[Rfam]
Shown here is an 86-nucleotide sequence from Denticeps clupeoides, a member of the family "Small nucleolar RNA SNORD11B".
Rfam classes the family as a C/D-box small nucleolar RNA.
The family's consensus secondary structure was predicted with WAR.
Rfam links the family to the GO terms RNA processing and nucleolus.
The family has 37 seed sequences and 733 matches in Rfam 15.1.
The family is grouped with related families in Rfam's "SNORD11 clan".

RNA sequence: CUGUGCUAUGAUGAUGAUGACAAAAUGUCAGAUUCCUGAAAACUGCUGUGUGGGUUUCUUAAGUCACUACCUCAUCUGAGCAUCAU
Numbered sequence: 001c002u003g004u005g006c007u008a009u010g011a012u013g014a015u016g017a018u019g020a021c022a023a024a025a026u027g028u029c030a031g032a033u034u035c036c037u038g039a040a041a042a043c044u045g046c047u048g049u050g051u052g053g054g055u056u057u058c059u060u061a062a063g064u065c066a067c068u069a070c071c072u073c074a075u076c077u078g079a080g081c082a083u084c085a086u
Stems, first nucleotide, its partner, number of pairs: 002085002004082003